The family of this 59-nucleotide sequence from Brucella anthropi is "Selenocysteine insertion sequence 3". The literature on the family includes a 1996 paper in RNA by Huttenhofer et al., "Solution structure of mRNA hairpins promoting selenocysteine incorporation in Escherichia coli and their base-specific interaction with special elongation factor SELB". Rfam's curators put it in the seed alignment. Pairs were carried over by alignment from the consensus structure, which was predicted with CMfinder.
RNA sequence: GUCUGACACGGCCCGACGGUGGCGAGUCUCGCCCCAACAUUUGGCCGCGGAGCAAUGAC
Numbered sequence: 001g002u003c004u005g006a007c008a009c010g011g012c013c014c015g016a017c018g019g020u021g022g023c024g025a026g027u028c029u030c031g032c033c034c035c036a037a038c039a040u041u042u043g044g045c046c047g048c049g050g051a052g053c054a055a056u057g058a059c
Stems, first nucleotide, its partner, number of pairs: 007049001009047005015042002018035002021033005